[Rfam]
RNA sequence: CCCAGCAGCAGUCAGCUGUCGGGACGGCCGUUCCUGUGACAGUGUUGCUCUGCUGGGAGAGGAAGGCUCUGUCCUCUGCUCCAGUCGCCUGCGCCACUGUCCUGGUGGCGUCCGGCACUGGUGAGGGCAGGGCCGUGCUCCCCUGAGAGUGUGCUAAGCGCUCCCCGUGGCCACUUAGCACUGGUGUGGGAGCAGACACA
Numbered sequence: 001c002c003c004a005g006c007a008g009c010a011g012u013c014a015g016c017u018g019u020c021g022g023g024a025c026g027g028c029c030g031u032u033c034c035u036g037u038g039a040c041a042g043u044g045u046u047g048c049u050c051u052g053c054u055g056g057g058a059g060a061g062g063a064a065g066g067c068u069c070u071g072u073c074c075u076c077u078g079c080u081c082c083a084g085u086c087g088c089c090u091g092c093g094c095c096a097c098u099g100u101c102c103u104g105g106u107g108g109c110g111u112c113c114g115g116c117a118c119u120g121g122u123g124a125g126g127g128c129a130g131g132g133c134c135g136u137g138c139u140c141c142c143c144u145g146a147g148a149g150u151g152u153g154c155u156a157a158g159c160g161c162u163c164c165c166c167g168u169g170g171c172c173a174c175u176u177a178g179c180a181c182u183g184g185u186g187u188g189g190g191a192g193c194a195g196a197c198a199c200a
Base pairs, nucleotide, nucleotide: 001057002056003055004054005053006052007051008050011048012047015043016042017041018040019039020038021035022034023033024032066133067132068131069130070129071128072127073126074125079123081121082120083119084116085115086114087113091109092108095107096106097105098104136194137193138192139191140190141189142188151181152180153179155177156176157175158174160172

Shown here is a 200-nucleotide sequence from Ovis aries, a member of the family "Small nucleolar RNA SNORA74". It is annotated as an H/ACA-box small nucleolar RNA. It scores 112 bits against the family's covariance model. Lineage of the source: Eukaryota > Sarcopterygii > Theria > Artiodactyla > Ovis. The family is grouped with related families in Rfam's "SNORA74 clan". U19 belongs to the H/ACA class of snoRNAs. snoRNAs bind a number of proteins (including dyskerin, Gar1p and Nop10p in the case of the H/ACA class) to form snoRNP complexes. This class are thought to guide the sites of modification of uridines to pseudouridines by forming direct base pairing interactions with substrate RNAs. Targets may include ribosomal and spliceosomal RNAs but the exact functions of many snoRNAs, including U19, are not confirmed. The family's consensus secondary structure was predicted with PFOLD.